[Rfam]
RNA sequence: GUCACCGGUAAAGGUGAUGUCUGAAGGAAGCCGAAGGGGGAACUUGGAACAUAGCGUAAGCGAACCGGUGUUGGCUGCUCAGGCGGGUAACCUUGCAUAAUAUGGGAAAGCCCGAAAGCUGGAUAACCUGAGAAGUUAGGACGGAUGCGUUCAAGUUCAGGCAGGCAGA
Numbered sequence: 001g002u003c004a005c006c007g008g009u010a011a012a013g014g015u016g017a018u019g020u021c022u023g024a025a026g027g028a029a030g031c032c033g034a035a036g037g038g039g040g041a042a043c044u045u046g047g048a049a050c051a052u053a054g055c056g057u058a059a060g061c062g063a064a065c066c067g068g069u070g071u072u073g074g075c076u077g078c079u080c081a082g083g084c085g086g087g088u089a090a091c092c093u094u095g096c097a098u099a100a101u102a103u104g105g106g107a108a109a110g111c112c113c114g115a116a117a118g119c120u121g122g123a124u125a126a127c128c129u130g131a132g133a134a135g136u137u138a139g140g141a142c143g144g145a146u147g148c149g150u151u152c153a154a155g156u157u158c159a160g161g162c163a164g165g166c167a168g169a
Base pairs, nucleotide, nucleotide: 001018002017003016004015005014006013031168033166037162042156043155044154045153046152047151050147051146052145065144066143067142069140074136075135076134078132079131080130081129082128083127085113086112087111088110091106092105093104